[Rfam]
The family of this 102-nucleotide RNA sequence from Clostridium cadaveris is "Purine riboswitch aptamer".
RNA sequence: AUAAAGUAAAAAAUGUUCACUUAUAUAAAUCUAGUAAUAAGGGCUAGAUGUUUCUACCGAACUACCAUAAAUAGUUCUACUAUAAGUGGGAAAGCUAAUACA
Numbered sequence: 001a002u003a004a005a006g007u008a009a010a011a012a013a014u015g016u017u018c019a020c021u022u023a024u025a026u027a028a029a030u031c032u033a034g035u036a037a038u039a040a041g042g043g044c045u046a047g048a049u050g051u052u053u054c055u056a057c058c059g060a061a062c063u064a065c066c067a068u069a070a071a072u073a074g075u076u077c078u079a080c081u082a083u084a085a086g087u088g089g090g091a092a093a094g095c096u097a098a099u100a101c102a
Base pairs, nucleotide, nucleotide: 018088019087020086021085022084023083024082025081029049030048031047032046033045034044035043059077060076061075062074063073064072

The source organism's lineage runs through Bacteria, Bacillota, Eubacteriales, Clostridiaceae and Clostridium.